RNA sequence: CUUGUCUCGUGAGCGCCAGGACUGGGAUUCCAGUUGACGAGGGCGGGGGAGUAUCGAAAAUUCGGCGGAUGCCCCUGGGGUUCAGAAGACCGAACCCAAAAAUUGCUCUACAAAUCCAGGAAGUGAUUUCUGGGACAAAAAGAGCAACAGGUCUUCUU
Numbered sequence: 001c002u003u004g005u006c007u008c009g010u011g012a013g014c015g016c017c018a019g020g021a022c023u024g025g026g027a028u029u030c031c032a033g034u035u036g037a038c039g040a041g042g043g044c045g046g047g048g049g050a051g052u053a054u055c056g057a058a059a060a061u062u063c064g065g066c067g068g069a070u071g072c073c074c075c076u077g078g079g080g081u082u083c084a085g086a087a088g089a090c091c092g093a094a095c096c097c098a099a100a101a102a103u104u105g106c107u108c109u110a111c112a113a114a115u116c117c118a119g120g121a122a123g124u125g126a127u128u129u130c131u132g133g134g135a136c137a138a139a140a141a142g143a144g145c146a147a148c149a150g151g152u153c154u155u156c157u158u
Stems, first nucleotide, its partner, number of pairs: 020035006045076005054065004077097003081093002103147006116133007
About this RNA:
This 158-nucleotide RNA from Aminobacterium colombiense belongs to the Rfam family "glmS glucosamine-6-phosphate activated ribozyme aptamer". This entry contains a glucosamine-6-phosphate activated ribozyme that is found in the mRNA for GlmS. GlmS is an enzyme that uses fructose-6-phosphate and glutamine to generate glucosamine-6-phosphate. The ribozyme catalyses self cleavage of the glmS mRNA that is thought to regulate GlmS activity. Lineage of the source: Bacteria > Synergistota > Synergistales > Aminobacteriaceae > Aminobacterium colombiense. It scores 98 bits against the family's covariance model.